[Rfam]
RNA: small nucleolar RNA snoR135
Organism: Medicago truncatula
RNA sequence: AAAGCAGGGAUAGUGUGUAUCGGUGUUUUGCUAUUAAAAAUGCAUUCUUUCCGAAAGUAUUCCCUUGCAAUAUUAAUUUAGAGAAAAUGGGCAGUUGUGUUUCAUAGUUUUGGUUGAAAAAUCACAACAAUCAUUUUCCCUACAUAU
Numbered sequence: 001a002a003a004g005c006a007g008g009g010a011u012a013g014u015g016u017g018u019a020u021c022g023g024u025g026u027u028u029u030g031c032u033a034u035u036a037a038a039a040a041u042g043c044a045u046u047c048u049u050u051c052c053g054a055a056a057g058u059a060u061u062c063c064c065u066u067g068c069a070a071u072a073u074u075a076a077u078u079u080a081g082a083g084a085a086a087a088u089g090g091g092c093a094g095u096u097g098u099g100u101u102u103c104a105u106a107g108u109u110u111u112g113g114u115u116g117a118a119a120a121a122u123c124a125c126a127a128c129a130a131u132c133a134u135u136u137u138c139c140c141u142a143c144a145u146a147u
Base pairs, nucleotide, nucleotide: 004068005067006066007064008063009062010061015045016044017043018042019041020040080141081140083138084137085136086135087134088133089132090131094128095127096126097125
Dot-bracket structure: ...(((((((....((((((...................))))))...............)))).)))...........((.((((((((...((((...........................))))..)))))))).))......